[Rfam]
RNA: Small nucleolar RNA SNORD124
Organism: Hipposideros armiger
RNA sequence: GGAACCCAAGGAAGGAAUGAUGUUCCAAUUAAGACUCAAGAAAAGGAUUCUGAGCCUCAGAGCUUUGAAGGAGCCACUUGGUCCCUGACCUUCCUUGAAGUGAG
Numbered sequence: 001g002g003a004a005c006c007c008a009a010g011g012a013a014g015g016a017a018u019g020a021u022g023u024u025c026c027a028a029u030u031a032a033g034a035c036u037c038a039a040g041a042a043a044a045g046g047a048u049u050c051u052g053a054g055c056c057u058c059a060g061a062g063c064u065u066u067g068a069a070g071g072a073g074c075c076a077c078u079u080g081g082u083c084c085c086u087g088a089c090c091u092u093c094c095u096u097g098a099a100g101u102g103a104g
Stems, first nucleotide, its partner, number of pairs: 009095007